[Rfam]
RNA sequence: GAAGAAGAGAAGAAGAAGGAGAAGGAGGAGAAGAAGGAGAAGGAGCCGUCCUUCUUCUCCUCCUUCUUCUCCUUCUUCUUCUCUU
Numbered sequence: 001g002a003a004g005a006a007g008a009g010a011a012g013a014a015g016a017a018g019g020a021g022a023a024g025g026a027g028g029a030g031a032a033g034a035a036g037g038a039g040a041a042g043g044a045g046c047c048g049u050c051c052u053u054c055u056u057c058u059c060c061u062c063c064u065u066c067u068u069c070u071c072c073u074u075c076u077u078c079u080u081c082u083c084u085u
Stems, first nucleotide, its partner, number of pairs: 004081006012075002015072001017070010028059001036057009